Rfam assigns this 103-nucleotide sequence from Trypanosoma cruzi to the family "Small nucleolar RNA TBR12". Rfam 15.1 lists 33 matches to the family in 8 species. Rfam links the family to the GO terms nucleolus and RNA processing. It is one of the family's seed sequences. TBR12 was one of seventeen snoRNAs identified in Trypanosoma brucei. Together with TBR2, TBR6 and TBR4 it is a part of snoRNA gene cluster that is tandemly repeated.
RNA sequence: CAAAUGAUGUGUGAAAAUGGAAUUACCAUCGGAAGGCGCCUGGCGCAGGUUGACGACAAGAUGCCGUGUGCAUACUACCUCAACUGUUACUCGUACCACUGAA
Numbered sequence: 001c002a003a004a005u006g007a008u009g010u011g012u013g014a015a016a017a018u019g020g021a022a023u024u025a026c027c028a029u030c031g032g033a034a035g036g037c038g039c040c041u042g043g044c045g046c047a048g049g050u051u052g053a054c055g056a057c058a059a060g061a062u063g064c065c066g067u068g069u070g071c072a073u074a075c076u077a078c079c080u081c082a083a084c085u086g087u088u089a090c091u092c093g094u095a096c097c098a099c100u101g102a103a
Base pairs, nucleotide, nucleotide: 004100005098006097008095009094010093011092015088016087018083020081021080027055029053030052032051033050036046037045038044039043059076060075061073062072063071064070